[Rfam]
Nucleotides: 174
Stems, first nucleotide, its partner, number of pairs: 001016001003014004028174001030172001037165001042159005047153001049151003063148006074140003078136007086114004092107004
Number, partner (000 for none) and nucleotide at each position: 001016u002000u003014u004013a005012u006011c007000g008000u009000g010000a011006g012005g013004u014003a015000u016001g017000c018000a019000c020000u021000g022000a023000a024000g025000g026000c027000a028174g029000c030172g031000a032000a033000a034000c035000g036000a037165c038000a039000a040000a041000a042159u043158c044157c045156g046155g047153u048000a049151c050150u051149g052000a053000c054000g055000u056000a057000c058000a059000g060000g061000a062000a063148c064147g065146u066145c067144a068143u069000a070000u071000g072000a073000g074140g075139c076138a077000a078136g079135u080134u081133a082132a083131c084130g085000a086114g087113g088112a089111u090000a091000a092107g093106c094105g095104u096000c097000c098000a099000c100000a101000g102000c103000a104095a105094c106093g107092u108000a109000a110000c111089g112088u113087c114086c115000g116000a117000a118000g119000a120000u121000u122000a123000u124000c125000a126000a127000a128000a129000u130084c131083g132082u133081u134080g135079a136078u137000u138076u139075g140074u141000a142000g143068a144067u145066g146065a147064c148063g149051c150050a151049g152000g153047a154000a155046u156045c157044g158043g159042a160000g161000g162000a163000a164000g165037g166000a167000a168000g169000a170000a171000g172030c173000u174028c
Shown here is a 174-nucleotide RNA sequence from Flavobacterium faecale, a member of the family "Group II catalytic intron D1-D4-3". From the family's description: Group II introns are found in rRNA, tRNA and mRNA of organelles in fungi, plants and protists, and also in mRNA in bacteria. The source organism's lineage runs through Bacteria, Pseudomonadati, Flavobacteriia, Flavobacteriaceae and Flavobacterium. Its family is annotated with Group II intron splicing in the Gene Ontology. The family has 406 seed sequences and 4,274 matches in Rfam 15.1.